[Rfam]
RNA sequence: UGAACAGAUUAUUAUAUUCGGCUGUAUUCAUGGCGUGAAACAGGGGAUUACACUGUUUUUAAACGGAAAGUGAACCAACAUAAUAGACUCCU
Numbered sequence: 001u002g003a004a005c006a007g008a009u010u011a012u013u014a015u016a017u018u019c020g021g022c023u024g025u026a027u028u029c030a031u032g033g034c035g036u037g038a039a040a041c042a043g044g045g046g047a048u049u050a051c052a053c054u055g056u057u058u059u060u061a062a063a064c065g066g067a068a069a070g071u072g073a074a075c076c077a078a079c080a081u082a083a084u085a086g087a088c089u090c091c092u
Stems, first nucleotide, its partner, number of pairs: 002091001004089001009086007017078002020076002028073004034065003037059007
RNA: MIR6152 microRNA precursor family